A member of the RNA family "7SK RNA" from Anseranas semipalmata, 303 nucleotides long. 7SK was discovered as an abundant small nuclear RNA in the mid-70s but a possible function has only recently been suggested. Two independent studies have found that 7SK RNA binds the CDK9/cyclin T complex (known as elongation factor P-TEFb). P-TEFb activates transcription by phosphorylating the C-terminal domain of RNA polymerase II. This process is negatively regulated by the 7SK RNP. The secondary structure of 7SK RNA shown here was proposed by Wasserman and Steitz on the basis of chemical modification and enzymatic cleavage experiments. The base pairs follow the family's consensus structure, which is taken from published work.

RNA sequence: GGAUGUGAGGGUGAUCUGGCUGCGACAUCUGUCACCCCAUUGAUCGCCAGGGUUGAUUUGGCUGAUCUGGCUGGCUAGGCAGGGGUCCCCUUCCUCCCUCACCGCUCCAUGUGCGUCCCUCCUGAAGCUGUGCGUUCGGUCGAAGAGGAUGACCUUCCCCAAUAGAGAUGUACCGGUCAUCGGUCAAGGGUAUAUGGUAGCUGCGCUCCCCUGCUAGAACCUCCAAACAAGUUUUUUCUAUGUGUUGGUGUUAUGAAAAAAACCAUCAACUUGAGCAGUCCAUGGACAAUUUUGUUGCUCCCU
Dot-bracket structure: (((.(((((((.((...((....(((.((((((.(((((..(((((((...........))).)))))))..))...)))))).))).)).))..)))))))...)))........(.(((((((.((.....))))))(.(....(((......))).).)..)))..).............................(.(....(.(...((........((..(((.(.........).))).)).))...).)....).).......................................